The family of this 74-nucleotide RNA from Sapajus apella is "mir-1288 microRNA precursor family". Taxonomically the source falls in Sapajus (Eukaryota, Chordata, Dipnotetrapodomorpha, Simiiformes). The family has 2 seed sequences and 19 matches in Rfam 15.1.

[Rfam]
RNA sequence: AAGAGGCUGAUCAGCAGAUUGGGACUAUAAUUCACCAUAGUGGUGGACUGCCCUAAUUUGGAGACCACUGCCUU
Numbered sequence: 001a002a003g004a005g006g007c008u009g010a011u012c013a014g015c016a017g018a019u020u021g022g023g024a025c026u027a028u029a030a031u032u033c034a035c036c037a038u039a040g041u042g043g044u045g046g047a048c049u050g051c052c053c054u055a056a057u058u059u060g061g062a063g064a065c066c067a068c069u070g071c072c073u074u
Stems, first nucleotide, its partner, number of pairs: 002073002006069001008067002011064002015060009028050002032046006